The family of this 94-nucleotide sequence from Paenibacillus agri is "c-di-GMP-I riboswitch aptamer". The family's consensus secondary structure is taken from published work. A search with the family's covariance model found it, with a score of 72 bits. The organism belongs to Paenibacillus, within Bacteria.

[Rfam]
RNA sequence: AAUUUAUAUGGGCAAAAUUCCUGAAAAGGAAUGACGCAAAGCCAUGGAUCUACAGCCUCAUUUUUUUGGGGGCCAUGACUGCCAGGUUGCAGAG
Numbered sequence: 001a002a003u004u005u006a007u008a009u010g011g012g013c014a015a016a017a018u019u020c021c022u023g024a025a026a027a028g029g030a031a032u033g034a035c036g037c038a039a040a041g042c043c044a045u046g047g048a049u050c051u052a053c054a055g056c057c058u059c060a061u062u063u064u065u066u067u068g069g070g071g072g073c074c075a076u077g078a079c080u081g082c083c084a085g086g087u088u089g090c091a092g093a094g
Base pairs, nucleotide, nucleotide: 012037013036017032018031019030020029021028022027040088041087042086043085045084046083047082049078050077055073056072057071058070